[Rfam]
RNA sequence: AGAAAACUUCAGGGAUAGGUGAGAUUCCUAUACUGGCGGUAUAGCCCGCGAGCUUUUAGUAAAGCAGAUUCGGUUAAACUCCGGAGCCAACAGUAAAGUCUGGAAGGAAGAAGGGAAGA
Numbered sequence: 001a002g003a004a005a006a007c008u009u010c011a012g013g014g015a016u017a018g019g020u021g022a023g024a025u026u027c028c029u030a031u032a033c034u035g036g037c038g039g040u041a042u043a044g045c046c047c048g049c050g051a052g053c054u055u056u057u058a059g060u061a062a063a064g065c066a067g068a069u070u071c072g073g074u075u076a077a078a079c080u081c082c083g084g085a086g087c088c089a090a091c092a093g094u095a096a097a098g099u100c101u102g103g104a105a106g107g108a109a110g111a112a113g114g115g116a117a118g119a
Base pairs, nucleotide, nucleotide: 007113008112009111010110017029018028019027032099033098034089035088036049037048038047039046044087045086052065053064054063069085070084071083072082073081091102092101093100